[Rfam]
RNA sequence: GUACGCGCUUGGUGACCUAGGCGCGGCACCAUUCUCCUCUUGUCGUUGUUGCUCCGGGGCUCACCGCCCCGGUUUUUUUGC
Numbered sequence: 001g002u003a004c005g006c007g008c009u010u011g012g013u014g015a016c017c018u019a020g021g022c023g024c025g026g027c028a029c030c031a032u033u034c035u036c037c038u039c040u041u042g043u044c045g046u047u048g049u050u051g052c053u054c055c056g057g058g059g060c061u062c063a064c065c066g067c068c069c070c071g072g073u074u075u076u077u078u079u080g081c
Stems, first nucleotide, its partner, number of pairs: 001029002004025004009021002012018001054072007
Rfam assigns this 81-nucleotide sequence from Pararobbsia alpina to the family "Burkholderia sRNA 16 (Bc_KC_sr1)".
Its family is annotated with bacterial biofilm matrix in the Gene Ontology.
Taxonomically the source falls in Pararobbsia (Bacteria, Pseudomonadota, Burkholderiales, Burkholderiaceae).
The base pairs follow the family's consensus structure, which was predicted with RNAfold.
The literature on the family includes a 2017 paper in Sci Rep by Sass et al., "Identification of small RNAs abundant in Burkholderia cenocepacia biofilms reveal putative regulators with a potential role in carbon and iron metabolism".